[Rfam]
RNA sequence: UGGCGCCCGACGUGGGGCUGUAGGUACGAGGGGUCCAGUGAGGAAGCGGACGCGUGGCGCCAGAGUUCGAGAAGUUCGAAAGGAAGAAAAAGAAAGUCCUUCGACCGCCGCGGGAGCCGCCGCGCCGGAGUAAAAGGUAAGUGCGUCCGAAAAAUGGGACAGGAACUAAGCCAGCAUCAGCUUUAUGUUAAGCAAUUAAAGGAUGCUUUAAAGACACGAGGAGUAAAGGUUAAAGGACAUGAUUUGUUUAAAUUUUUUGACUUUAUACAGGAUAUUUGCCCUU
Number, nucleotide and partner (000 for none) at each position: 001u000002g000003g000004c000005g000006c032007c031008c030009g000010a000011c000012g027013u026014g025015g000016g000017g000018c000019u000020g000021u000022a000023g000024g000025u014026a013027c012028g000029a000030g008031g007032g006033g000034u000035c000036c000037a000038g051039u050040g000041a000042g000043g000044a000045a000046g000047c000048g000049g000050a039051c038052g000053c000054g000055u000056g000057g000058c000059g000060c000061c000062a000063g000064a000065g000066u000067u000068c000069g000070a000071g000072a000073a000074g000075u000076u000077c000078g000079a000080a000081a000082g000083g000084a000085a000086g000087a000088a000089a000090a000091a000092g000093a000094a000095a000096g000097u000098c137099c136100u134101u133102c000103g000104a000105c128106c127107g000108c000109c124110g123111c122112g121113g120114g000115a000116g000117c000118c000119g000120c113121c112122g111123c110124g109125c000126c000127g106128g105129a000130g000131u000132a000133a101134a100135a000136g099137g098138u000139a000140a000141g000142u161143g160144c000145g000146u158147c157148c156149g155150a000151a000152a000153a000154a000155u149156g148157g147158g146159a000160c143161a142162g000163g000164a000165a000166c000167u210168a209169a208170g206171c205172c000173a000174g000175c000176a000177u000178c000179a000180g000181c000182u000183u000184u000185a000186u000187g000188u000189u000190a000191a000192g000193c000194a000195a000196u000197u000198a000199a000200a000201g000202g000203a000204u000205g171206c170207u000208u169209u168210a167211a000212a000213g000214a000215c000216a000217c259218g258219a257220g256221g255222a254223g253224u252225a000226a000227a245228g244229g243230u242231u241232a240233a000234a000235g000236g000237a000238c000239a000240u232241g231242a230243u229244u228245u227246g000247u000248u000249u000250a000251a000252a224253u223254u222255u221256u220257u219258u218259g217260a000261c000262u000263u000264u000265a000266u000267a000268c000269a282270g281271g280272a000273u278274a000275u000276u000277u000278g273279c000280c271281c270282u269283u000

The family of this 283-nucleotide RNA sequence from Propithecus coquereli is "Mason-Pfizer monkey virus packaging signal".
A reference for the family is Mustafa et al. (2004), "Mutational analysis of the predicted secondary RNA structure of the Mason-Pfizer monkey virus packaging signal", Virus Res.
A search with the family's covariance model found it, with a score of 196 bits.
The family's RNA type in Rfam is cis-regulatory element.
This family represents a group of sequences that are related to the Mason-Pfizer monkey virus (MPMV) packaging signal. The packaging signal is located in the 5' UTR and is required for specific RNA encapsidation.
Gene Ontology term of the family: viral genome packaging.
Pairs were carried over by alignment from the consensus structure, which was predicted with PFOLD.